A member of the RNA family "tRNA", 66 nucleotides long.
The family's consensus secondary structure is taken from published work.
RNA sequence: AGCUCCGAGGUGAUUUUCAUAUUGAAUUGCAAAUUCGAAGAAGCAGCUUCAAACCUGCCGGGGCUU
Numbered sequence: 001a002g003c004u005c006c007g008a009g010g011u012g013a014u015u016u017u018c019a020u021a022u023u024g025a026a027u028u029g030c031a032a033a034u035u036c037g038a039a040g041a042a043g044c045a046g047c048u049u050c051a052a053a054c055c056u057g058c059c060g061g062g063g064c065u066u
Stems, first nucleotide, its partner, number of pairs: 001065007010020004022038005043058004